[Rfam]
RNA sequence: CCAGACGGCCGGACGGCCGCUUUUCACCCCGGUGAAGAGAGGAAAGUCCGGGCUCCACGGAAGUACGGUGCCGGAUAACGUCCGGCGGGGGCGACCCUAGGGAAAGUGCCACAGAAAGCAAACCGCCCGCCUUCGGACGGGUAAGGGUGAAAGGGUGCGGUAAGAGCGCACCGCGGACCUGGCAACAGGGCCGGCACGGCAAACCCCACCGGGAGCAAGACCAAAUAGGGGCGGCGGUUUUCUGCGGGUUUUCCCGUAGGAACGAAACGCGCUUCCGCGUAGCCGCCCGGGUCGGUCGCGAGAGGUGUCCGGCAACGGGCAUCCCAGAUGAAUGGUCGUCACCAGGCCCAGCCUGGAACAGAACCCGGCUUACAGGCCGUCUGGCGCA
Number, nucleotide and partner (000 for none) at each position: 001c384002c383003a382004g381005a380006c379007g378008g377009c376010c375011g373012g340013a339014c338015g337016g336017c335018c334019g000020c039021u038022u037023u036024u035025c034026a033027c032028c000029c000030c000031g000032g027033u026034g025035a024036a023037g022038a021039g020040a000041g000042g000043a000044a371045a370046g369047u000048c368049c367050g366051g365052g364053c215054u214055c213056c212057a000058c000059g000060g000061a000062a274063g273064u000065a000066c211067g210068g209069u208070g207071c085072c084073g083074g082075a081076u000077a000078a000079c000080g000081u075082c074083c073084g072085g071086c100087g098088g097089g096090g095091g000092c000093g000094a000095c090096c089097c088098u087099a000100g086101g206102g205103a000104a000105a000106g204107u203108g200109c199110c198111a000112c000113a000114g000115a000116a000117a000118g000119c000120a000121a000122a000123c146124c145125g142126c141127c140128c139129g138130c000131c136132u000133u000134c000135g000136g131137a000138c129139g128140g127141g126142u125143a000144a000145g124146g123147g000148u000149g000150a000151a000152a000153g000154g172155g171156u170157g169158c168159g167160g000161u000162a000163a000164g000165a000166g000167c159168g158169c157170a156171c155172c154173g195174c193175g192176g191177a000178c189179c188180u187181g186182g000183c000184a000185a000186c181187a180188g179189g178190g000191c176192c175193g174194g000195c173196a000197c000198g110199g109200c108201a000202a000203a107204c106205c102206c101207c070208a069209c068210c067211g066212g056213g055214a054215g053216c000217a000218a000219g297220a296221c295222c294223a000224a000225a000226u000227a000228g000229g288230g287231g286232c285233g284234g283235c000236g000237g000238u000239u000240u000241u000242c000243u000244g000245c000246g000247g000248g000249u000250u000251u000252u000253c000254c000255c000256g000257u000258a000259g000260g000261a000262a000263c000264g000265a000266a000267a280268c279269g278270c277271g000272c000273u063274u062275c000276c000277g270278c269279g268280u267281a000282g000283c234284c233285g232286c231287c230288c229289g000290g000291g000292u000293c000294g222295g221296u220297c219298g000299c000300g000301a000302g000303a000304g323305g322306u321307g320308u319309c318310c317311g316312g000313c000314a000315a000316c311317g310318g309319g308320c307321a306322u305323c304324c000325c000326a000327g000328a000329u000330g000331a000332a000333u000334g018335g017336u016337c015338g014339u013340c012341a000342c000343c000344a000345g000346g000347c000348c000349c000350a000351g000352c000353c000354u000355g000356g000357a000358a000359c000360a000361g000362a000363a000364c052365c051366c050367g049368g048369c046370u045371u044372a000373c011374a000375g010376g009377c008378c007379g006380u005381c004382u003383g002384g001385c000386g000387c000388a000
This 388-nucleotide sequence from Magnetospirillum moscoviense belongs to the Rfam family "Bacterial RNase P class A". By type it is a ribozyme. Pairs were carried over by alignment from the consensus structure, which is taken from published work.